[Rfam]
RNA sequence: AACGUAACGGAAGGAGGUGAUCCAGUGUCUCAUUGUCUCAUGCUGCGGGCCCGGACCUGGACUCGCGCCUUUGAGGUUCUCGCCUCCUAAGGUGAUCAGGCAUCGCGCACCGCGGUGUGACAAUGGAAGGGCUGUCCUAUCGGGCGGCCCU
Numbered sequence: 001a002a003c004g005u006a007a008c009g010g011a012a013g014g015a016g017g018u019g020a021u022c023c024a025g026u027g028u029c030u031c032a033u034u035g036u037c038u039c040a041u042g043c044u045g046c047g048g049g050c051c052c053g054g055a056c057c058u059g060g061a062c063u064c065g066c067g068c069c070u071u072u073g074a075g076g077u078u079c080u081c082g083c084c085u086c087c088u089a090a091g092g093u094g095a096u097c098a099g100g101c102a103u104c105g106c107g108c109a110c111c112g113c114g115g116u117g118u119g120a121c122a123a124u125g126g127a128a129g130g131g132c133u134g135u136c137c138u139a140u141c142g143g144g145c146g147g148c149c150c151u
Stems, first nucleotide, its partner, number of pairs: 016023002031125007044060001047057002050054001063098001065096001068092003073086004103115005128151010